[Rfam]
RNA sequence: UAUCAAAACACAUAGAGUAUCCAUAUAAUCCUAAUAAUGUGGUUUAGGAGUUUCUACCGGAAGCCGUAAAUUUCCAGUCUAUGGAUAAACUCAUUUGAAAC
Numbered sequence: 001u002a003u004c005a006a007a008a009c010a011c012a013u014a015g016a017g018u019a020u021c022c023a024u025a026u027a028a029u030c031c032u033a034a035u036a037a038u039g040u041g042g043u044u045u046a047g048g049a050g051u052u053u054c055u056a057c058c059g060g061a062a063g064c065c066g067u068a069a070a071u072u073u074c075c076a077g078u079c080u081a082u083g084g085a086u087a088a089a090c091u092c093a094u095u096u097g098a099a100a101c
Stems, first nucleotide, its partner, number of pairs: 018087008029049006058077001059075005
RNA: Purine riboswitch aptamer
Organism: Clostridium tyrobutyricum